[Rfam]
Nucleotides: 122
Base pairs, nucleotide, nucleotide: 007026008025009024010023011022012021054076055075057073058072059071060070
Number, partner (000 for none) and nucleotide at each position: 001000u002000g003000u004000c005000g006000u007026a008025g009024c010023u011022g012021a013000g014000u015000u016000a017000g018000a019000g020000a021012u022011c023010g024009g025008c026007u027000a028000u029000u030000g031000a032000u033000g034000a035000a036000u037000a038000u039000a040000a041000a042000c043000u044000a045000a046000c047000u048000u049000a050000c051000u052000u053000u054076u055075u056000a057073g058072g059071a060070g061000u062000a063000a064000a065000a066000a067000u068000g069000u070060c071059u072058c073057u074000a075055a076054g077000u078000u079000u080000a081000g082000a083000a084000g085000c086000a087000a088000a089000a090000g091000c092000a093000a094000a095000a096000a097000u098000c099000g100000u101000u102000g103000c104000u105000g106000a107000g108000u109000u110000c111000g112000g113000u114000c115000g116000u117000g118000a119000u120000g121000a122000a

Background: This 122-nucleotide RNA sequence from Otariodibacter oris belongs to the Rfam family "Ribosomal S15 leader". The E. coli Ribosomal S15 gene 5' UTR can form two alternative structures. One that is a series of three hairpins, The other includes a pseudoknot. This structure causes translational regulation of the S15 protein. The alignment of this family contains only the final two hairpins which are conserved in other species, and also includes the complete region that forms the alternate structures. The source organism's lineage runs through Bacteria, Pseudomonadota, Gammaproteobacteria, Pasteurellaceae and Otariodibacter. The base pairs follow the family's consensus structure, which is taken from published work. Its Rfam clan is "Ribosomal Protein S15 Leader clan".